[Rfam]
RNA sequence: GUUACCAUACUUUUCAAUUGAAAUGAAGGUUUUUCAUCAGCCUUAAAAGUGUAAGAAAAAUAAAGCUGUCAUUCAUUACUUUAAAAAAAAA
Numbered sequence: 001g002u003u004a005c006c007a008u009a010c011u012u013u014u015c016a017a018u019u020g021a022a023a024u025g026a027a028g029g030u031u032u033u034u035c036a037u038c039a040g041c042c043u044u045a046a047a048a049g050u051g052u053a054a055g056a057a058a059a060a061u062a063a064a065g066c067u068g069u070c071a072u073u074c075a076u077u078a079c080u081u082u083a084a085a086a087a088a089a090a091a
Stems, first nucleotide, its partner, number of pairs: 012086003016082002020079001022077004026044006048073004